[Rfam]
RNA sequence: AUGACGAUUGUGGGAGAGACCGGACCGAAGCGCCCGGCACCGAAGGAGCAAGUCCCAAAAAUCCUUGGGAAAGAAUCUCUCAGGUACAAGGUACCACAAUUGGACG
Numbered sequence: 001a002u003g004a005c006g007a008u009u010g011u012g013g014g015a016g017a018g019a020c021c022g023g024a025c026c027g028a029a030g031c032g033c034c035c036g037g038c039a040c041c042g043a044a045g046g047a048g049c050a051a052g053u054c055c056c057a058a059a060a061a062u063c064c065u066u067g068g069g070a071a072a073g074a075a076u077c078u079c080u081c082a083g084g085u086a087c088a089a090g091g092u093a094c095c096a097c098a099a100u101u102g103g104a105c106g
Stems, first nucleotide, its partner, number of pairs: 006101008020037004039085003042081002046079003053071001
RNA: Glycine riboswitch aptamer